[Rfam]
RNA: isrB Hfq binding RNA
RNA sequence: AAUGGCACCUCGGUUUUACCAGGUAGAAAUGUCCGGUUCGCUUUGGUCGGUGACGCCGGACGGGCAGGCCCACUUCGUGUGGGCUUUU
Numbered sequence: 001a002a003u004g005g006c007a008c009c010u011c012g013g014u015u016u017u018a019c020c021a022g023g024u025a026g027a028a029a030u031g032u033c034c035g036g037u038u039c040g041c042u043u044u045g046g047u048c049g050g051u052g053a054c055g056c057c058g059g060a061c062g063g064g065c066a067g068g069c070c071c072a073c074u075u076c077g078u079g080u081g082g083g084c085u086u087u088u
Stems, first nucleotide, its partner, number of pairs: 010023002012020002031061007038053002066086008